[Rfam]
RNA sequence: GCCGAGCCUUGUAACGUGGGCUUGUGACCUGAGUGGGGGCAACAAUGUGGUGGAAUGUUGGGUUGUUCUUGAUGGCUGGACUUCGAAGGGCUAAUGUUCUGGCCUGCCCUAUCCAAGCACAGAGUUGGGUUAAGUGGUCUAUACGAAAGUAUAGGCUGCUUGGCCUUUAGAGUGGGGCGGACUGCGUGAGGCUGGUUUCACAGAGCAACGAAUAGUCUCCGCUCUGUGCAGUGGAAGGAUAACGGGCUAGUGCUCUCUGAGUUCAACAAAAACCUGAUGGGCUACUUAAUUAAACCACCAUUUUU
Number, nucleotide and partner (000 for none) at each position: 001g040002c039003c038004g023005a022006g021007c020008c019009u018010u000011g000012u000013a000014a000015c000016g000017u000018g009019g008020g007021c006022u005023u004024g000025u000026g000027a000028c037029c036030u035031g000032a000033g000034u000035g030036g029037g028038g003039g002040c001041a000042a000043c000044a304045a303046u000047g301048u300049g299050g298051u297052g296053g295054a000055a000056u292057g291058u289059u288060g287061g286062g285063u284064u000065g282066u281067u000068c280069u279070u000071g000072a000073u000074g274075g273076c000077u271078g264079g263080a262081c261082u260083u259084c000085g257086a000087a256088g255089g254090g253091c000092u252093a251094a000095u000096g000097u000098u000099c250100u249101g248102g247103c246104c245105u244106g243107c000108c238109c237110u000111a000112u235113c234114c233115a232116a000117g229118c228119a227120c226121a225122g224123a223124g222125u221126u000127g166128g165129g164130u163131u162132a161133a160134g159135u158136g157137g156138u155139c154140u153141a152142u151143a150144c149145g000146a000147a000148a000149g144150u143151a142152u141153a140154g139155g138156c137157u136158g135159c134160u133161u132162g131163g130164c129165c128166u127167u172168u000169a000170g000171a000172g167173u000174g219175g218176g217177g216178c215179g000180g000181a000182c000183u212184g000185c210186g209187u208188g000189a000190g000191g000192c203193u202194g201195g000196u000197u000198u000199c000200a000201c194202a193203g192204a000205g000206c000207a000208a187209c186210g185211a000212a183213u000214a000215g178216u177217c176218u175219c174220c000221g125222c124223u123224c122225u121226g120227u119228g118229c117230a000231g000232u115233g114234g113235a112236a000237g109238g108239a000240u000241a000242a000243c106244g105245g104246g103247c102248u101249a100250g099251u093252g092253c090254u089255c088256u087257c085258u000259g083260a082261g081262u080263u079264c078265a000266a000267c000268a000269a000270a000271a077272a000273c075274c074275u000276g000277a000278u000279g069280g068281g066282c065283u000284a063285c062286u061287u060288a059289a058290u000291u057292a056293a000294a000295c053296c052297a051298c050299c049300a048301u047302u000303u045304u044305u000
About this RNA:
Rfam assigns this 305-nucleotide sequence from Solanum tuberosum to the family "Plant signal recognition particle RNA". For this family Rfam cites "Towards the structure of the mammalian signal recognition particle" (Wild et al., Curr Opin Struct Biol, 2002). The family's consensus secondary structure is taken from published work.